This 177-nucleotide RNA from Solanum tuberosum belongs to the Rfam family "MIR7996 microRNA precursor family". The family has 2 seed sequences and 439 matches in Rfam 15.1. Gene Ontology terms of the family: miRNA-mediated post-transcriptional gene silencing and RISC complex. NCBI's taxonomy places the organism under Eukaryota, Viridiplantae, Spermatophyta, Solanaceae, Solanum.
RNA sequence: AUGUGGUACAUAUGAAAUUUGAAGUUAAUCAAUUUUUUAGUAUGUUUUUAUAUAUUUUAAGUUGCUAAUUAUUUUUAUUUAGAGUAUAUAUUAUAAAUCACAAUAAUUAACAAGUUAAUAUAAUAAGAAACUUAUAAAAAAUUCAUUGACUUUUGAAAUUUCAUUUGUAUCACAUAA
Numbered sequence: 001a002u003g004u005g006g007u008a009c010a011u012a013u014g015a016a017a018u019u020u021g022a023a024g025u026u027a028a029u030c031a032a033u034u035u036u037u038u039a040g041u042a043u044g045u046u047u048u049u050a051u052a053u054a055u056u057u058u059a060a061g062u063u064g065c066u067a068a069u070u071a072u073u074u075u076u077a078u079u080u081a082g083a084g085u086a087u088a089u090a091u092u093a094u095a096a097a098u099c100a101c102a103a104u105a106a107u108u109a110a111c112a113a114g115u116u117a118a119u120a121u122a123a124u125a126a127g128a129a130a131c132u133u134a135u136a137a138a139a140a141a142u143u144c145a146u147u148g149a150c151u152u153u154u155g156a157a158a159u160u161u162c163a164u165u166u167g168u169a170u171c172a173c174a175u176a177a
Base pairs, nucleotide, nucleotide: 001175002174003173004172005171006170007169008168009167010166012164013163014162015161016160017159018158019157020156022154023153024152025149026148027147028146029145031143032142033141034140035139036138037137038136039135044131045130046129047128048127049126053122054121055120057118058117059116060115062113063112064111066109067108068107069106070105071104072103073102076100077098078097079096080095083092084091085090